[Rfam]
Group II catalytic intron D1-D4-1: an 83-nucleotide RNA from Trichloromonas acetexigens. Rfam's curators write: Group II introns are found in rRNA, tRNA and mRNA of organelles in fungi, plants and protists, and also in mRNA in bacteria. NCBI's taxonomy places the organism under Bacteria, Thermodesulfobacteriota, Desulfuromonadia, Desulfuromonadales, Trichloromonas. It scores 65 bits against the family's covariance model.
RNA sequence: CUACCGACGUCGCAAGGCGUCGGGAUGGAUUGGCAGAAGUCAGCCGAGGUCGUACUAGCUGGAGUAACCGCCCAGUGAAGGAC
Numbered sequence: 001c002u003a004c005c006g007a008c009g010u011c012g013c014a015a016g017g018c019g020u021c022g023g024g025a026u027g028g029a030u031u032g033g034c035a036g037a038a039g040u041c042a043g044c045c046g047a048g049g050u051c052g053u054a055c056u057a058g059c060u061g062g063a064g065u066a067a068c069c070g071c072c073c074a075g076u077g078a079a080g081g082a083c
Base pairs, nucleotide, nucleotide: 001027004023005022006021007020008019009018010017011016040047041046049083050082051081058076059075060074061073062072